[Rfam]
Record summary: Rfam assigns this 120-nucleotide RNA sequence from Tupaia belangeri to the family "Small nucleolar RNA SNORA26".

RNA sequence: GUGCCCUUCUGAAGUUGAUGUAGUGCUUUAAGAAGCUAACACAGAGGGGUAAAGUAAGCCUAAAAAAACAGAGAAGAGACUGUAAAGCUCCUUUUUUGGAUUCUAUUUGGAGUAACAACU
Numbered sequence: 001g002u003g004c005c006c007u008u009c010u011g012a013a014g015u016u017g018a019u020g021u022a023g024u025g026c027u028u029u030a031a032g033a034a035g036c037u038a039a040c041a042c043a044g045a046g047g048g049g050u051a052a053a054g055u056a057a058g059c060c061u062a063a064a065a066a067a068a069c070a071g072a073g074a075a076g077a078g079a080c081u082g083u084a085a086a087g088c089u090c091c092u093u094u095u096u097u098g099g100a101u102u103c104u105a106u107u108u109g110g111a112g113u114a115a116c117a118a119c120u
Stems, first nucleotide, its partner, number of pairs: 002051009014040004019035001021032001060112002062108001069098001070096005076090003080087002
A reference for the family is Huttenhofer et al. (2001), "RNomics: an experimental approach that identifies 201 candidates for novel, small, non-messenger RNAs in mouse", EMBO J. A search with the family's covariance model found it, with a score of 90 bits. The family's consensus secondary structure was predicted with RNAalifold.